[Rfam]
RNA sequence: UGCAUAUGAUGUUUAUUCUCACGAUGGUCUUCCAAGUCUUCGAGACUCUGACGACAUUGCCUAAUGGCAUUACUGAUGCAGCUCU
Numbered sequence: 001u002g003c004a005u006a007u008g009a010u011g012u013u014u015a016u017u018c019u020c021a022c023g024a025u026g027g028u029c030u031u032c033c034a035a036g037u038c039u040u041c042g043a044g045a046c047u048c049u050g051a052c053g054a055c056a057u058u059g060c061c062u063a064a065u066g067g068c069a070u071u072a073c074u075g076a077u078g079c080a081g082c083u084c085u
Stems, first nucleotide, its partner, number of pairs: 001080004

About this RNA
Small nucleolar RNA SNORD35: an 85-nucleotide RNA sequence from Ameiurus melas. The family is grouped with related families in Rfam's "SNORD35 clan". Lineage of the source: Eukaryota > Craniata > Teleostei > Siluroidei > Ameiurus. About the family: U35 is a C/D box snoRNA located in intron 6 of ribosomal protein L13A and intron 3 of ribosomal protein S11 in humans and at homologous positions in mouse and chicken ribosomal protein genes. U35 guides the methylation of 2'-O-ribose sites in 28S rRNA. The literature on the family includes a 1996 paper in J Mol Biol by Nicoloso et al., "Intron-encoded, antisense small nucleolar RNAs: the characterization of nine novel species points to their direct role as guides for the 2'-O-ribose methylation of rRNAs". Its family is annotated with RNA processing and nucleolus in the Gene Ontology. The base pairs follow the family's consensus structure, which was predicted with PFOLD.